[Rfam]
Overview
Shown here is a 232-nucleotide sequence from Pristimantibacillus lignocellulolyticus, a member of the family "c-di-AMP riboswitch aptamer (ydaO/yuaA leader)". A search with the family's covariance model found it, with a score of 79 bits.
Nucleotides: 232
Stems, first nucleotide, its partner, number of pairs: 011216004018036003037211006047131001132196003140170002173190004
Number, partner (000 for none) and nucleotide at each position: 001000u002000a003000a004000a005000u006000u007000g008000a009000a010000u011216c012215g013214c014213u015000g016000a017000g018036u019035u020034u021000u022000c023000g024000u025000c026000a027000a028000a029000a030000g031000a032000c033000g034020g035019a036018a037211g038210c039209g040208g041207g042206g043000g044000a045000a046000c047131c048000a049000a050000g051000c052000a053000a054000a055000c056000a057000a058000a059000a060000a061000a062000c063000u064000c065000u066000a067000g068000a069000u070000a071000g072000a073000g074000a075000a076000a077000a078000u079000g080000u081000u082000u083000u084000g085000c086000u087000g088000a089000g090000c091000g092000u093000g094000u095000c096000a097000u098000a099000a100000u101000c102000c103000g104000a105000u106000g107000u108000g109000a110000g111000a112000g113000u114000c115000g116000g117000a118000g119000a120000g121000u122000g123000a124000u125000a126000a127000c128000g129000c130000a131047g132196g133195g134194g135000u136000g137000a138000a139000u140170c141169u142000u143000a144000a145000a146000c147000c148000g149000g150000g151000u152000a153000c154000c155000a156000u157000g158000g159000a160000a161000c162000c163000g164000g165000u166000a167000a168000u169141a170140g171000u172000a173190g174189g175188g176187c177000g178000a179000c180000u181000c182000u183000c184000a185000c186000c187176g188175u189174c190173c191000g192000a193000a194134u195133c196132c197000g198000u199000c200000a201000g202000c203000u204000a205000a206042c207041c208040u209039c210038g211037u212000a213014a214013g215012c216011g217000u218000u219000g220000a221000a222000u223000g224000a225000g226000a227000g228000a229000g230000g231000a232000u